[Rfam]
RNA sequence: AAUAAUAAUGAAUAUGUUGCUCAUAUAGGUUCCAUAAUACGGUUGGGACGUUUCUACAAAUGACCGAAAAUCAUUUAGCUAUGGGCGAAAGUGUACCUAGG
Numbered sequence: 001a002a003u004a005a006u007a008a009u010g011a012a013u014a015u016g017u018u019g020c021u022c023a024u025a026u027a028g029g030u031u032c033c034a035u036a037a038u039a040c041g042g043u044u045g046g047g048a049c050g051u052u053u054c055u056a057c058a059a060a061u062g063a064c065c066g067a068a069a070a071u072c073a074u075u076u077a078g079c080u081a082u083g084g085g086c087g088a089a090a091g092u093g094u095a096c097c098u099a100g101g
Base pairs, nucleotide, nucleotide: 018087019086020085021084022083023082024081025080029049030048031047032046033045034044058076059075060074061073062072063071
The family of this 101-nucleotide sequence from Tissierella praeacuta is "Purine riboswitch aptamer". Pairs were carried over by alignment from the consensus structure, which is taken from published work. For this family Rfam cites "Riboswitches Control Fundamental Biochemical Pathways in Bacillus subtilis and Other Bacteria" (Mandal et al., Cell, 2003). Rfam's curators write: Riboswitches are metabolite binding domains within certain messenger RNAs that serve as precision sensors for their corresponding targets.